[Rfam]
RNA sequence: GAGCUGUGAAGAAACGGUUUAGCGAUGGUUGGGUCCAUCGCAUUCAUCUGAUUUCCAGAUACUAUAGCCACAAUCCUGAGCUC
Dot-bracket structure: ((((...........................................................................))))
Numbered sequence: 001g002a003g004c005u006g007u008g009a010a011g012a013a014a015c016g017g018u019u020u021a022g023c024g025a026u027g028g029u030u031g032g033g034u035c036c037a038u039c040g041c042a043u044u045c046a047u048c049u050g051a052u053u054u055c056c057a058g059a060u061a062c063u064a065u066a067g068c069c070a071c072a073a074u075c076c077u078g079a080g081c082u083c
Stems, first nucleotide, its partner, number of pairs: 001083004